[Rfam]
A member of the RNA family "Small nucleolar RNA Z155" from Lactuca sativa, 79 nucleotides long.
The source organism's lineage runs through Eukaryota, Magnoliopsida, Pentapetalae, Cichorioideae and Lactuca.
On this family, see Chen et al., Nucleic Acids Res 2003: "The high diversity of snoRNAs in plants: identification and comparative study of 120 snoRNA genes from Oryza sativa".
By type it is a C/D-box small nucleolar RNA.
RNA sequence: CAUUGAGGUGAUGAGAAAGUUGUCGGAAAACAUAAUGUCGAUCUAAAAAUACUUCCAGACUACAAUUAUCUGAUCAAUG
Numbered sequence: 001c002a003u004u005g006a007g008g009u010g011a012u013g014a015g016a017a018a019g020u021u022g023u024c025g026g027a028a029a030a031c032a033u034a035a036u037g038u039c040g041a042u043c044u045a046a047a048a049a050u051a052c053u054u055c056c057a058g059a060c061u062a063c064a065a066u067u068a069u070c071u072g073a074u075c076a077a078u079g
Stems, first nucleotide, its partner, number of pairs: 001079006